[Rfam]
RNA sequence: CCCUCCGAGGAGCGUUGCAGCGGCCCGUCCGCCGGCGUCGGUCAUGACCGCCGCGGGUGCGCCGUCAGGCUCGGAGCCUGUGCCGAAGAAUCGAUGCCAACGACGCUCACCUGUC
Numbered sequence: 001c002c003c004u005c006c007g008a009g010g011a012g013c014g015u016u017g018c019a020g021c022g023g024c025c026c027g028u029c030c031g032c033c034g035g036c037g038u039c040g041g042u043c044a045u046g047a048c049c050g051c052c053g054c055g056g057g058u059g060c061g062c063c064g065u066c067a068g069g070c071u072c073g074g075a076g077c078c079u080g081u082g083c084c085g086a087a088g089a090a091u092c093g094a095u096g097c098c099a100a101c102g103a104c105g106c107u108c109a110c111c112u113g114u115c
Stems, first nucleotide, its partner, number of pairs: 003076006021064004026059007
SAH (S-adenosyl-L-homocysteine) riboswitch aptamer: a 115-nucleotide RNA sequence from Paracidovorax avenae. NCBI's taxonomy places the organism under Bacteria, Betaproteobacteria, Burkholderiales, Comamonadaceae, Paracidovorax avenae.